[Rfam]
RNA sequence: GGGGGUGACCGGUCUCGACUUCGGUAGGUCGAGCCAGGGGAAGCGGGUCGAGGGUUGCUGUUGUGACCUCGUAAAUCCUGUGACAGCAAACCUAUAACUGCCAACAAGAAGCAGUCCGAGUUCGCUCUCGCCGCCUGAGGCGAGUAGCGACUCUGCCGGCCCGGGUACGUCUCCGCCCCGGGAUCCGGCAUCAUCAGGAGACUCCACUCUGCCGCCCGGUCGCGGGGCAGUAGAGAACACCUAACAGCGACUGAGCCCGUCGGCGACUCGCCUGCGAGAGCGCCGGGGCUGAGAAAGCGUCAAGCAGGCUGCGCCCGGAGAAGCCCUGGCCCAUCAUCGAAGGACGCGGGUUCGAUUCCCGCCACCUCCACUA
Numbered sequence: 001g002g003g004g005g006u007g008a009c010c011g012g013u014c015u016c017g018a019c020u021u022c023g024g025u026a027g028g029u030c031g032a033g034c035c036a037g038g039g040g041a042a043g044c045g046g047g048u049c050g051a052g053g054g055u056u057g058c059u060g061u062u063g064u065g066a067c068c069u070c071g072u073a074a075a076u077c078c079u080g081u082g083a084c085a086g087c088a089a090a091c092c093u094a095u096a097a098c099u100g101c102c103a104a105c106a107a108g109a110a111g112c113a114g115u116c117c118g119a120g121u122u123c124g125c126u127c128u129c130g131c132c133g134c135c136u137g138a139g140g141c142g143a144g145u146a147g148c149g150a151c152u153c154u155g156c157c158g159g160c161c162c163g164g165g166u167a168c169g170u171c172u173c174c175g176c177c178c179c180g181g182g183a184u185c186c187g188g189c190a191u192c193a194u195c196a197g198g199a200g201a202c203u204c205c206a207c208u209c210u211g212c213c214g215c216c217c218g219g220u221c222g223c224g225g226g227g228c229a230g231u232a233g234a235g236a237a238c239a240c241c242u243a244a245c246a247g248c249g250a251c252u253g254a255g256c257c258c259g260u261c262g263g264c265g266a267c268u269c270g271c272c273u274g275c276g277a278g279a280g281c282g283c284c285g286g287g288g289c290u291g292a293g294a295a296a297g298c299g300u301c302a303a304g305c306a307g308g309c310u311g312c313g314c315c316c317g318g319a320g321a322a323g324c325c326c327u328g329g330c331c332c333a334u335c336a337u338c339g340a341a342g343g344a345c346g347c348g349g350g351u352u353c354g355a356u357u358c359c360c361g362c363c364a365c366c367u368c369c370a371c372u373a
Base pairs, nucleotide, nucleotide: 001369002368003367004366005365006364007363019342020341021340022339023338024337025336027334031332033330034329035328036327037326038325039324044317045316046315047314048313049071050070051069052068053067056088057087058086059085060084061083062082131147133145134144154190155189156188157187158186159185160182161181162180163178164177165176166175169202170201171200172199173198174197207235208234209233210232211231212230214228215227218252219251220250221249222248223247254290255289256288257287258286261285262284263283267280268279270309271308272307273306278301346362347361348360349359350358
Shown here is a 373-nucleotide RNA from Actinomadura harenae, a member of the family "transfer-messenger RNA". The organism belongs to Actinomadura, within Bacteria. Its family is annotated with RNA catabolic process in the Gene Ontology. About the family: Bacterial tmRNA, also known as 10Sa RNA or SsrA, is named for its dual tRNA and mRNA-like properties. Its role is to liberate the mRNA from a stalled ribosome. To accomplish this part of the tmRNA is used as a reading frame that ends in a translation stop signal. The broken mRNA is replaced in the ribosome by the tmRNA and translation of the tmRNA leads to addition of a proteolysis tag to the incomplete protein enabling recognition by a protease. Recently a number of permuted tmRNA genes have been found encoded in two parts. tmRNAs have been identified in eubacteria and some chloroplasts but are absent from archaeal and eukaryote nuclear genomes. Pairs were carried over by alignment from the consensus structure, which is taken from published work. For this family Rfam cites "Phylogenetic analysis of tmRNA secondary structure" (Williams and Bartel, RNA, 1996).